[Rfam]
RNA sequence: GUGACUAGAAGUUAGACUAAACUCGUCACAUCCUGUGACAACGUCUAACUGACCCACGUCUUGUGAG
Numbered sequence: 001g002u003g004a005c006u007a008g009a010a011g012u013u014a015g016a017c018u019a020a021a022c023u024c025g026u027c028a029c030a031u032c033c034u035g036u037g038a039c040a041a042c043g044u045c046u047a048a049c050u051g052a053c054c055c056a057c058g059u060c061u062u063g064u065g066a067g
Base pairs, nucleotide, nucleotide: 011049012048013047014046015045016044017043025039026038027037028036029035053067055065056064057063

A member of the RNA family "Bacillaceae-1 RNA" from Paraliobacillus ryukyuensis, 67 nucleotides long. The base pairs follow the family's consensus structure, which is taken from published work. Taxonomically the source falls in Paraliobacillus (Bacteria, Bacillati, Caryophanales, Bacillaceae). By type it is a small RNA. It scores 63 bits against the family's covariance model. Rfam 15.1 lists 5,721 matches to the family in 247 species.